RAGATH-18 RNA: a 74-nucleotide sequence.
The family's consensus secondary structure is taken from published work.
Actinobacteria, Firmicutes, Fusobacteria, Thermotogae (1 example).
By type it is a small RNA.
RNA sequence: CCCUCGGAGCGUUAUAUCAAACGAAAGUAGUUUUAGUGAGAACUAAUACAAAAUCGGGCGCGAUGAAUUGGGAA
Numbered sequence: 001c002c003c004u005c006g007g008a009g010c011g012u013u014a015u016a017u018c019a020a021a022c023g024a025a026a027g028u029a030g031u032u033u034u035a036g037u038g039a040g041a042a043c044u045a046a047u048a049c050a051a052a053a054u055c056g057g058g059c060g061c062g063a064u065g066a067a068u069u070g071g072g073a074a
Stems, first nucleotide, its partner, number of pairs: 001072003009061005022056003030049002035044002